[Rfam]
RNA sequence: GUUCCCCUUGCUGGAGAGAGGUCCGCCGCAUGCGCGGGCCCACCGAAGGAGCAAGCCCCCGCGCCGCCAUGGCACGUGGGUGAAUCUCUCAGGUAAAGCGGACAGCGGGGCAAAU
Number, nucleotide and partner (000 for none) at each position: 001g000002u000003u000004c000005c000006c110007c109008u108009u107010g106011c105012u104013g103014g000015a000016g000017a000018g000019a000020g040021g039022u038023c037024c036025g035026c034027c000028g000029c000030a000031u000032g000033c000034g026035c025036g024037g023038g022039c021040c020041c000042a094043c093044c092045g090046a089047a000048g000049g088050a087051g086052c000053a000054a000055g081056c080057c079058c078059c000060c000061g000062c000063g000064c000065c000066g000067c000068c000069a000070u000071g000072g000073c000074a000075c000076g000077u000078g058079g057080g056081u055082g000083a000084a000085u000086c051087u050088c049089u046090c045091a000092g044093g043094u042095a000096a000097a000098g000099c000100g000101g000102a000103c013104a012105g011106c010107g009108g008109g007110g006111c000112a000113a000114a000115u000
RNA: Glycine riboswitch aptamer